[Rfam]
RNA: Bacterial small signal recognition particle RNA
RNA sequence: UGUUAGUCAUCUGCAAUGUGAAUCUGCCAACUCGGUCAGGUUCGGAAGGAAGCAGCCGCAACAGAUAACACAUGUGCUGCAUACAGCUAACACGG
Numbered sequence: 001u002g003u004u005a006g007u008c009a010u011c012u013g014c015a016a017u018g019u020g021a022a023u024c025u026g027c028c029a030a031c032u033c034g035g036u037c038a039g040g041u042u043c044g045g046a047a048g049g050a051a052g053c054a055g056c057c058g059c060a061a062c063a064g065a066u067a068a069c070a071c072a073u074g075u076g077c078u079g080c081a082u083a084c085a086g087c088u089a090a091c092a093c094g095g
Base pairs, nucleotide, nucleotide: 003090004089005088006087007086009082010081012079013078014074016073017072018071019070020069022066023065024064025063026062033058034057035056036055041050042049043048